[Rfam]
RNA sequence: GGAGGUUGCGAUGAGGAUUUACAGCUCCCUCUUCCGAUUCAUUUCGUUGAAGAAAUCGGCUGGCAGAAUCGAACCUAUUAACUUUAUCGCCACCACUGAGCAA
Numbered sequence: 001g002g003a004g005g006u007u008g009c010g011a012u013g014a015g016g017a018u019u020u021a022c023a024g025c026u027c028c029c030u031c032u033u034c035c036g037a038u039u040c041a042u043u044u045c046g047u048u049g050a051a052g053a054a055a056u057c058g059g060c061u062g063g064c065a066g067a068a069u070c071g072a073a074c075c076u077a078u079u080a081a082c083u084u085u086a087u088c089g090c091c092a093c094c095a096c097u098g099a100g101c102a103a
Base pairs, nucleotide, nucleotide: 006103007102008101009100
Dot-bracket structure: .....((((..........................................................................................))))